Source information:
This 73-nucleotide RNA sequence from Carnobacterium divergens belongs to the Rfam family "tRNA". The literature on the family includes a 1997 paper in Nucleic Acids Res by Lowe and Eddy, "tRNAscan-SE: a program for improved detection of transfer RNA genes in genomic sequence". By type it is a transfer RNA. NCBI's taxonomy places the organism under Bacteria, Bacillota, Bacilli, Carnobacteriaceae, Carnobacterium divergens.
RNA sequence: GCCGCUUUAGCUCAGUCGGUAGAGCACUUCCAUGGUAAGGAAGGGGUCGCCGGUUCAAAUCCGGCAAGUGGCU
Numbered sequence: 001g002c003c004g005c006u007u008u009a010g011c012u013c014a015g016u017c018g019g020u021a022g023a024g025c026a027c028u029u030c031c032a033u034g035g036u037a038a039g040g041a042a043g044g045g046g047u048c049g050c051c052g053g054u055u056c057a058a059a060u061c062c063g064g065c066a067a068g069u070g071g072c073u
Base pairs, nucleotide, nucleotide: 001072002071003070004069005068006067007066010025011024012023013022027043028042029041030040031039049065050064051063052062053061